A member of the RNA family "Alphaproteobacterial sRNA BjrC1505" from Blastochloris tepida, 137 nucleotides long. The literature on the family includes a 2012 paper in RNA Biol by Madhugiri et al., "Small RNAs of the Bradyrhizobium/Rhodopseudomonas lineage and their analysis". By type it is a small RNA.
RNA sequence: CAUUUGCUUAACCCGUCAUUAAGUAUCCCAGCGUAUGACUGUGGAUGUCCAGAUUCUGGACGUCGAGUGGCUCCUGUCCACUCUGUUUGACGCCUCCCUGUUAAGACUUCGGAGCCGCCGCUGGCGGCUCUUUUUUU
Dot-bracket structure: (((..(......)......((.((......)).)).....)))...((((.......))))...((((((.......)))))).....((((......))))........(((((((((...)))))))))......